[Rfam]
RNA: SAM riboswitch aptamer (S box leader)
Organism: Mucilaginibacter gilvus
Nucleotides: 116
Base pairs, nucleotide, nucleotide: 001116003114004113005112006111007110008109013042014041015040016039017038021031022030023029026087027086028085043080044079045078046077048076049075052071053070054069084108090104091103092102
Number, partner (000 for none) and nucleotide at each position: 001116a002000a003114c004113u005112u006111a007110u008109c009000c010000a011000g012000a013042a014041a015040g016039a017038c018000a019000g020000a021031g022030g023029g024000a025000a026087a027086g028085g029023c030022c031021c032000u033000a034000c035000g036000a037000c038017g039016u040015c041014u042013u043080a044079g045078c046077a047000a048076c049075c050000u051000g052071u053070a054069c055000c056000a057000g058000c059000u060000u061000u062000u063000a064000a065000g066000c067000u068000u069054g070053u071052a072000a073000a074000a075049g076048g077046u078045g079044c080043u081000a082000a083000u084108u085028c086027c087026u088000g089000c090104u091103c092102c093000a094000u095000u096000u097000a098000a099000u100000u101000g102092g103091g104090a105000c106000a107000a108084a109008g110007a111006u112005a113004a114003g115000a116001u